Selenocysteine transfer RNA: an 88-nucleotide sequence from Brachyspira pilosicoli. A search with the family's covariance model found it, with a score of 60 bits. Lineage of the source: Bacteria > Pseudomonadati > Brachyspiraceae > Brachyspira > Brachyspira pilosicoli.

Nucleotides: 088
Stems, first nucleotide, its partner, number of pairs: 001088005008081001011026006028044005047063005066080004
Number, partner (000 for none) and nucleotide at each position: 001088g002087g003086a004085g005084g006000u007000a008081g009000a010000u011026g012025a013024g014023u015022c016021c017000c018000g019000g020000u021016g022015g023014g024013c025012u026011c027000c028044g029043c030042g031041c032040u033000c034000u035000u036000c037000a038000a039000a040032a041031g042030c043029g044028u045000u046000g047063g048062a049061c050060g051059u052000u053000a054000u055000a056000g057000c058000a059051a060050c061049g062048u063047u064000g065000g066080c067079a068078g069077g070000u071000u072000c073000a074000a075000c076000u077069c078068c079067u080066g081008c082000c083000u084005c085004u086003u087002c088001c